[Rfam]
RNA: HIV gag stem loop 3 (GSL3)
RNA sequence: GACCUGGGGGAAAGAAAAAGUAUAUGAUGAAACAUUUAGUUUGGGCAAGCAGGGAGCUGGAAAGAUUUGCUUGUAACCCAGGUC
Numbered sequence: 001g002a003c004c005u006g007g008g009g010g011a012a013a014g015a016a017a018a019a020g021u022a023u024a025u026g027a028u029g030a031a032a033c034a035u036u037u038a039g040u041u042u043g044g045g046c047a048a049g050c051a052g053g054g055a056g057c058u059g060g061a062a063a064g065a066u067u068u069g070c071u072u073g074u075a076a077c078c079c080a081g082g083u084c
Stems, first nucleotide, its partner, number of pairs: 001084008